[Rfam]
A member of the RNA family "c-di-GMP-I riboswitch aptamer" from Sporolactobacillus putidus, 89 nucleotides long. The match comes from Rfam's covariance-model search (74 bits).
RNA sequence: AUACCUAUAGGGCAAAUUUUACGAAAGUAAAAGACGCAAAGCCACGGACCUAAAGUAUUACUUUUUACCAUGGCAGCCGGGCCGCCAGG
Numbered sequence: 001a002u003a004c005c006u007a008u009a010g011g012g013c014a015a016a017u018u019u020u021a022c023g024a025a026a027g028u029a030a031a032a033g034a035c036g037c038a039a040a041g042c043c044a045c046g047g048a049c050c051u052a053a054a055g056u057a058u059u060a061c062u063u064u065u066u067a068c069c070a071u072g073g074c075a076g077c078c079g080g081g082c083c084g085c086c087a088g089g
Stems, first nucleotide, its partner, number of pairs: 012037002017032006041082003045079003049073002055068003